[Rfam]
RNA sequence: CGCGGUCCUCGGUAGUGAUUUCCGGGACAGACGCCCCCUUUUUUUGGCGGCCGGUCCCGUGAGUCUCGAUCGAAGACCGGG
Numbered sequence: 001c002g003c004g005g006u007c008c009u010c011g012g013u014a015g016u017g018a019u020u021u022c023c024g025g026g027a028c029a030g031a032c033g034c035c036c037c038c039u040u041u042u043u044u045u046g047g048c049g050g051c052c053g054g055u056c057c058c059g060u061g062a063g064u065c066u067c068g069a070u071c072g073a074a075g076a077c078c079g080g081g
Base pairs, nucleotide, nucleotide: 001081003079004078005077006076007075009073010072011071012070013069017065018064019063020062021061023059024058025057026056027055028054
A member of the RNA family "Actino-pnp RNA" from Arthrobacter terrae, 81 nucleotides long. The family's RNA type in Rfam is cis-regulatory element. Pairs were carried over by alignment from the consensus structure, which is taken from published work. The organism belongs to Arthrobacter, within Bacteria.